Notes:
tRNA: a 72-nucleotide sequence from Elioraea sp. Yellowstone. Rfam classes the family as a transfer RNA. Rfam's curators write: Transfer RNA (tRNA) molecules are approximately 80 nucleotides in length.

[Rfam]
RNA sequence: GGGCGUGUAGCUCAGCGGGAGAGCACUGCCUUCACACGGCAGGGGUCGUAGGUUCAAUCCCUACCGCGCCCA
Dot-bracket structure: (((((((..((((.......)))).(((((.......))))).....(((((.......)))))))))))).